RNA sequence: AUAAAUCUGUUGCCGAAUCCCAUUUUUUUGGGAACGGGGGACCCGUUUUUUAUGGGGUUAAUCCAGUAUCAAUAUAAUUAUUACUGGAAGGAGACCUUUUACUCCUAACCCGACAGCUAACCUCGUAGGCGUUAAAAGGACAGAUA
Numbered sequence: 001a002u003a004a005a006u007c008u009g010u011u012g013c014c015g016a017a018u019c020c021c022a023u024u025u026u027u028u029u030g031g032g033a034a035c036g037g038g039g040g041a042c043c044c045g046u047u048u049u050u051u052a053u054g055g056g057g058u059u060a061a062u063c064c065a066g067u068a069u070c071a072a073u074a075u076a077a078u079u080a081u082u083a084c085u086g087g088a089a090g091g092a093g094a095c096c097u098u099u100u101a102c103u104c105c106u107a108a109c110c111c112g113a114c115a116g117c118u119a120a121c122c123u124c125g126u127a128g129g130c131g132u133u134a135a136a137a138g139g140a141c142a143g144a145u146a
Stems, first nucleotide, its partner, number of pairs: 011131004018033005034126006044054002055111003063087006090105004
Rfam assigns this 146-nucleotide RNA sequence from Halothermothrix orenii to the family "c-di-AMP riboswitch aptamer (ydaO/yuaA leader)".